A member of the RNA family "Small nucleolar RNA SNORA74" from Pipistrellus kuhlii, 202 nucleotides long. The family has 24 seed sequences and 1,348 matches in Rfam 15.1. Its family is annotated with RNA processing and nucleolus in the Gene Ontology. Rfam describes the family as follows. U19 belongs to the H/ACA class of snoRNAs. snoRNAs bind a number of proteins (including dyskerin, Gar1p and Nop10p in the case of the H/ACA class) to form snoRNP complexes. This class are thought to guide the sites of modification of uridines to pseudouridines by forming direct base pairing interactions with substrate RNAs. Targets may include ribosomal and spliceosomal RNAs but the exact functions of many snoRNAs, including U19, are not confirmed. The family is grouped with related families in Rfam's "SNORA74 clan". The source organism's lineage runs through Eukaryota, Teleostomi, Amniota, Laurasiatheria and Pipistrellus. By type it is an H/ACA-box small nucleolar RNA. For this family Rfam cites "The family of box ACA small nucleolar RNAs is defined by an evolutionarily conserved secondary structure and ubiquitous sequence elements essential for RNA accumulation" (Ganot et al., Genes Dev, 1997).

RNA sequence: UCCAGCAGUAGUCAGCUGUGCAGACAGAAUCAUGUCUGUGAUGGUGUUACACUGCUGGGAGAGGAAUGCUUGUCUUCUUCCUCCAGUCGCCUCUGUCAGUGUUCUGACCACAGCUGGCACUGGGGCAAGGCAGAACUGUGCUUCCUUGAGAGCAAGCUAAGCAUCACUUUGGCUGCUUAGUUCUGGUGUGGGAGCAGACACA
Number, nucleotide and partner (000 for none) at each position: 001u059002c058003c057004a056005g055006c054007a053008g052009u051010a000011g050012u049013c000014a000015g045016c044017u043018g042019u041020g000021c038022a037023g036024a035025c034026a000027g000028a000029a000030u000031c000032a000033u000034g025035u024036c023037u022038g021039u000040g000041a019042u018043g017044g016045u015046g000047u000048u000049a012050c011051a009052c008053u007054g006055c005056u004057g003058g002059g001060a000061g000062a000063g000064g000065a000066a000067u000068g000069c000070u133071u132072g131073u130074c129075u128076u000077c000078u000079u000080c000081c125082u124083c123084c122085a121086g118087u117088c116089g115090c000091c113092u000093c000094u110095g109096u000097c000098a000099g000100u000101g000102u000103u000104c000105u000106g000107a000108c000109c095110a094111c000112a000113g091114c000115u089116g088117g087118c086119a000120c000121u085122g084123g083124g082125g081126c000127a000128a075129g074130g073131c072132a071133g070134a000135a000136c000137u000138g000139u196140g195141c194142u193143u192144c191145c190146u000147u000148g000149a000150g000151a000152g000153c000154a000155a182156g181157c000158u179159a178160a177161g176162c175163a174164u000165c000166a000167c000168u000169u000170u000171g000172g000173c000174u163175g162176c161177u160178u159179a158180g000181u156182u155183c000184u000185g000186g000187u000188g000189u000190g145191g144192g143193a142194g141195c140196a139197g000198a000199c000200a000201c000202a000